[Rfam]
RNA sequence: CGAGUGUCAUAAGCGCCAGAGCUUGCGCGGAGGUGUUCAUCUUCAGCAAUGAGGAUGUAGCACCGGCAAGCUGACGAGGUGGAGGUGUUCGAAAUGUUCGGCGGGGACCUCCCGGUACUGCAUUCAGACCGUAAGCUGAUCUUCGAAAACGACGGGGCGACCAGUCGCACAAGAAUUCAGCAGGAAUGCU
Numbered sequence: 001c002g003a004g005u006g007u008c009a010u011a012a013g014c015g016c017c018a019g020a021g022c023u024u025g026c027g028c029g030g031a032g033g034u035g036u037u038c039a040u041c042u043u044c045a046g047c048a049a050u051g052a053g054g055a056u057g058u059a060g061c062a063c064c065g066g067c068a069a070g071c072u073g074a075c076g077a078g079g080u081g082g083a084g085g086u087g088u089u090c091g092a093a094a095u096g097u098u099c100g101g102c103g104g105g106g107a108c109c110u111c112c113c114g115g116u117a118c119u120g121c122a123u124u125c126a127g128a129c130c131g132u133a134a135g136c137u138g139a140u141c142u143u144c145g146a147a148a149a150c151g152a153c154g155g156g157g158c159g160a161c162c163a164g165u166c167g168c169a170c171a172a173g174a175a176u177u178c179a180g181c182a183g184g185a186a187u188g189c190u
Stems, first nucleotide, its partner, number of pairs: 020072007029063001081112005089101004113131004118127002136180004142174001150167004155162002
Dot-bracket structure: ...................(((((((..(.................................)..)))))))........(((((...((((.....))))......)))))((((.((......))))))....((((..(.......((((.((....)).))))......)..))))..........
This 190-nucleotide RNA sequence from Paenibacillus phyllosphaerae belongs to the Rfam family "glmS glucosamine-6-phosphate activated ribozyme aptamer". Gene Ontology terms of the family: regulation of gene expression and catalytic activity. The family's RNA type in Rfam is riboswitch.